[Rfam]
RNA sequence: GUACCCAGUGAUUAUAAAAAGACGCGUUAUUCUGAGGGUUUCACUAGAUGUCAGUUUUCUGCCUUUCUCUGCUCUGGUUGUUUCUUCUUCUUUUUUUCUUUCUUCCUGUCCUCUGGUCUGUCCUGAAACUGACACCUGGUCCGUUGAUUGUGGUUAUGAGAGAUGAGGGUGC
Numbered sequence: 001g002u003a004c005c006c007a008g009u010g011a012u013u014a015u016a017a018a019a020a021g022a023c024g025c026g027u028u029a030u031u032c033u034g035a036g037g038g039u040u041u042c043a044c045u046a047g048a049u050g051u052c053a054g055u056u057u058u059c060u061g062c063c064u065u066u067c068u069c070u071g072c073u074c075u076g077g078u079u080g081u082u083u084c085u086u087c088u089u090c091u092u093u094u095u096u097u098c099u100u101u102c103u104u105c106c107u108g109u110c111c112u113c114u115g116g117u118c119u120g121u122c123c124u125g126a127a128a129c130u131g132a133c134a135c136c137u138g139g140u141c142c143g144u145u146g147a148u149u150g151u152g153g154u155u156a157u158g159a160g161a162g163a164u165g166a167g168g169g170u171g172c
Stems, first nucleotide, its partner, number of pairs: 001172006035085004
RNA: Small nucleolar RNA SNORD97